[Rfam]
RNA: L17-Actino-Proteobacteria ribosomal protein leader
Organism: Streptomyces sulphureus
RNA sequence: CCGGCGGGGCGCCCGCCUCGUCGGCCUGACACCGGUACCUGACACGGCCGGUGCAG
Numbered sequence: 001c002c003g004g005c006g007g008g009g010c011g012c013c014c015g016c017c018u019c020g021u022c023g024g025c026c027u028g029a030c031a032c033c034g035g036u037a038c039c040u041g042a043c044a045c046g047g048c049c050g051g052u053g054c055a056g
Stems, first nucleotide, its partner, number of pairs: 001024009026056003030053007